[Rfam]
RNA sequence: AACAGAACAGGCGAUGACGUUCGCCUUCGAAAACCACAUUUGUGAUUGAUGACGUCUACUUUUUG
Numbered sequence: 001a002a003c004a005g006a007a008c009a010g011g012c013g014a015u016g017a018c019g020u021u022c023g024c025c026u027u028c029g030a031a032a033a034c035c036a037c038a039u040u041u042g043u044g045a046u047u048g049a050u051g052a053c054g055u056c057u058a059c060u061u062u063u064u065g
Stems, first nucleotide, its partner, number of pairs: 010025004016056006036046001
RNA: Fluoride riboswitch aptamer (crcB RNA motif)